[Rfam]
Shown here is a 78-nucleotide sequence from Tetracentron sinense, a member of the family "MIR473 microRNA precursor family". Pairs were carried over by alignment from the consensus structure, which was predicted with WAR. A search with the family's covariance model found it, with a score of 55 bits. Lineage of the source: Eukaryota > Tracheophyta > Magnoliopsida > Trochodendrales > Tetracentron. The literature on the family includes a 2005 paper in Plant Cell by Lu et al., "Novel and mechanical stress-responsive MicroRNAs in Populus trichocarpa that are absent from Arabidopsis".
RNA sequence: AUUGCUCACUCUCCCUCAAGGGCUUCUGGAAUUACCGAAAGGUUAUGCCUGAAGUGUUUUGGGGGGAGUGGUCAAAAG
Numbered sequence: 001a002u003u004g005c006u007c008a009c010u011c012u013c014c015c016u017c018a019a020g021g022g023c024u025u026c027u028g029g030a031a032u033u034a035c036c037g038a039a040a041g042g043u044u045a046u047g048c049c050u051g052a053a054g055u056g057u058u059u060u061g062g063g064g065g066g067a068g069u070g071g072u073c074a075a076a077a078g
Stems, first nucleotide, its partner, number of pairs: 006071010018059003022055005